[Rfam]
RNA: Nuclear RNase P
Organism: Amphiamblys sp. WSBS2006
RNA sequence: GUUGGAGGAAGCUUCUGCCACGGGCCUCGGCCUGAGGAAAGUCCGAGAGACCAUCCCCACUGCAGAGAUGCAGCUGUCUAGAGGACAGAGCAGUCAACAGAAAGCACUCGUUGGAAAGGCUGCUGAUGGCGUAAAGUGGAAUCCCCUGAAGUGGAAUGCAGAAGGCGGCGUGCCGUAACAAAAUUCGGAUUACUCUCCCCCAAC
Numbered sequence: 001g002u003u004g005g006a007g008g009a010a011g012c013u014u015c016u017g018c019c020a021c022g023g024g025c026c027u028c029g030g031c032c033u034g035a036g037g038a039a040a041g042u043c044c045g046a047g048a049g050a051c052c053a054u055c056c057c058c059a060c061u062g063c064a065g066a067g068a069u070g071c072a073g074c075u076g077u078c079u080a081g082a083g084g085a086c087a088g089a090g091c092a093g094u095c096a097a098c099a100g101a102a103a104g105c106a107c108u109c110g111u112u113g114g115a116a117a118g119g120c121u122g123c124u125g126a127u128g129g130c131g132u133a134a135a136g137u138g139g140a141a142u143c144c145c146c147u148g149a150a151g152u153g154g155a156a157u158g159c160a161g162a163a164g165g166c167g168g169c170g171u172g173c174c175g176u177a178a179c180a181a182a183a184u185u186c187g188g189a190u191u192a193c194u195c196u197c198c199c200c201c202a203a204c
Stems, first nucleotide, its partner, number of pairs: 001204004007198003012164007021034005043188005052128004060073005074088006089124007165176004